[Rfam]
RNA sequence: AGGCACCUCAUUUGUAAGUCGCUUUGGAUAAAAGCAUCUGCCAAAUGAAUAAAU
Number, nucleotide and partner (000 for none) at each position: 001a000002g000003g000004c000005a000006c000007c000008u000009c000010a000011u000012u000013u043014g041015u040016a039017a000018g000019u000020c000021g035022c034023u033024u032025u031026g000027g000028a000029u000030a000031a025032a024033a023034g022035c021036a000037u000038c000039u016040g015041c014042c000043a013044a000045a000046u000047g000048a000049a000050u000051a000052a000053a000054u000